[Rfam]
RNA sequence: ACAUUUCCCCUCCUGGCUGGAACCCUUCCCAUCGCCUUGCUAUAGCUGAACUACCCCUGCCGAAACAUGGCAUAACAACAGGCAAUCACAGGAUUGCUAUAACACAUGCACCCAGGGAGCACAUCACCAUGUACUC
Numbered sequence: 001a002c003a004u005u006u007c008c009c010c011u012c013c014u015g016g017c018u019g020g021a022a023c024c025c026u027u028c029c030c031a032u033c034g035c036c037u038u039g040c041u042a043u044a045g046c047u048g049a050a051c052u053a054c055c056c057c058u059g060c061c062g063a064a065a066c067a068u069g070g071c072a073u074a075a076c077a078a079c080a081g082g083c084a085a086u087c088a089c090a091g092g093a094u095u096g097c098u099a100u101a102a103c104a105c106a107u108g109c110a111c112c113c114a115g116g117g118a119g120c121a122c123a124u125c126a127c128c129a130u131g132u133a134c135u136c
Stems, first nucleotide, its partner, number of pairs: 012117001014116001019029003036108001038106002058072005081098006
opuB ncRNA motif: a 136-nucleotide sequence from Pseudenterobacter timonensis. The source organism's lineage runs through Bacteria, Pseudomonadota, Enterobacterales, Enterobacteriaceae and Pseudenterobacter. It is annotated as a cis-regulatory element. The base pairs follow the family's consensus structure, which is taken from published work.